[Rfam]
RNA sequence: UUGUGCCGGGCAAGUCUUAUACGACCAGCUCCUGCUGAACUUCCCCAGGCUGGGAACAGAGCAAGGAUAGGCGGUUGAGCGGUGCGAUGUAAGUAGCUUGCCCAUUU
Numbered sequence: 001u002u003g004u005g006c007c008g009g010g011c012a013a014g015u016c017u018u019a020u021a022c023g024a025c026c027a028g029c030u031c032c033u034g035c036u037g038a039a040c041u042u043c044c045c046c047a048g049g050c051u052g053g054g055a056a057c058a059g060a061g062c063a064a065g066g067a068u069a070g071g072c073g074g075u076u077g078a079g080c081g082g083u084g085c086g087a088u089g090u091a092a093g094u095a096g097c098u099u100g101c102c103c104a105u106u107u
Stems, first nucleotide, its partner, number of pairs: 008103008017092005022086002024083002
Rfam assigns this 107-nucleotide RNA from Vicingus serpentipes to the family "Bacteroidales small SRP". The match comes from Rfam's covariance-model search (92 bits). The literature on the family includes a 2020 paper in Nat Commun by Ryan et al., "A high-resolution transcriptome map identifies small RNA regulation of metabolism in the gut microbe Bacteroides thetaiotaomicron". Lineage of the source: Bacteria > Bacteroidota > Flavobacteriia > Vicingaceae > Vicingus. The family's RNA type in Rfam is non-coding RNA gene.